[Rfam]
RNA sequence: UCCAGCAGUGGUCAGCUGUCCAGACAGAAUCAUGCCUGUGAUGGUGUCCCACUCCUGGGAGAGGAAUGUCCUAUCUUCUUCCUCCAGUUGCCUCCCUCACUGUUCUGGUGGCAUCUGGCACUGGUGCACAGAAGAACUGUGCUUUCUUUAGAGCAAGCUGAGCAUCACUUUGGCUGCUUAAUUCUAGUGUGGGAGCGCGCACA
Numbered sequence: 001u002c003c004a005g006c007a008g009u010g011g012u013c014a015g016c017u018g019u020c021c022a023g024a025c026a027g028a029a030u031c032a033u034g035c036c037u038g039u040g041a042u043g044g045u046g047u048c049c050c051a052c053u054c055c056u057g058g059g060a061g062a063g064g065a066a067u068g069u070c071c072u073a074u075c076u077u078c079u080u081c082c083u084c085c086a087g088u089u090g091c092c093u094c095c096c097u098c099a100c101u102g103u104u105c106u107g108g109u110g111g112c113a114u115c116u117g118g119c120a121c122u123g124g125u126g127c128a129c130a131g132a133a134g135a136a137c138u139g140u141g142c143u144u145u146c147u148u149u150a151g152a153g154c155a156a157g158c159u160g161a162g163c164a165u166c167a168c169u170u171u172g173g174c175u176g177c178u179u180a181a182u183u184c185u186a187g188u189g190u191g192g193g194a195g196c197g198c199g200c201a202c203a
Stems, first nucleotide, its partner, number of pairs: 001059005007053003011050001015045006021038003025034001068137002071134002074132003083128001085126002087122001089120004096111001098110004139198008156183002159180006
RNA: Small nucleolar RNA SNORA74